[Rfam]
The record is a 65-nucleotide RNA from Enterococcus ratti, which matches "Enterococcus sRNA A9" in Rfam. Pairs were carried over by alignment from the consensus structure, which was predicted with RNAfold. A reference for the family is Shioya et al. (2011), "Genome-wide identification of small RNAs in the opportunistic pathogen Enterococcus faecalis V583", PLoS One. It scores 50 bits against the family's covariance model.
RNA sequence: GCGAAAUGUAAAGAUUUUGUACAAUAGAAGCACAAAGACAAGCCUACUGCGAAUAGGCUUGUCUU
Numbered sequence: 001g002c003g004a005a006a007u008g009u010a011a012a013g014a015u016u017u018u019g020u021a022c023a024a025u026a027g028a029a030g031c032a033c034a035a036a037g038a039c040a041a042g043c044c045u046a047c048u049g050c051g052a053a054u055a056g057g058c059u060u061g062u063c064u065u
Base pairs, nucleotide, nucleotide: 006020007019008018035065036064037063038062039061040060041059042058043057044056045055046054